[Rfam]
Actinomyces-1 RNA: a 111-nucleotide sequence from Actinomyces glycerinitolerans.

RNA sequence: ACUGCCGCCGGGCGGAACGGGUCAUGAGGGAAUGGGGAGCCCAGUGACUGACCCACUUCCGAGACGAGACGGGUACAUGGGAGCCCGCGCCGCGUCGUCCUGGCGAAGGAG
Numbered sequence: 001a002c003u004g005c006c007g008c009c010g011g012g013c014g015g016a017a018c019g020g021g022u023c024a025u026g027a028g029g030g031a032a033u034g035g036g037g038a039g040c041c042c043a044g045u046g047a048c049u050g051a052c053c054c055a056c057u058u059c060c061g062a063g064a065c066g067a068g069a070c071g072g073g074u075a076c077a078u079g080g081g082a083g084c085c086c087g088c089g090c091c092g093c094g095u096c097g098u099c100c101u102g103g104c105g106a107a108g109g110a111g
Stems, first nucleotide, its partner, number of pairs: 006105007013061004019054006028042003033038001063096004068091001070087005
NCBI's taxonomy places the organism under Bacteria, Bacillati, Actinomycetes, Actinomycetales, Actinomyces.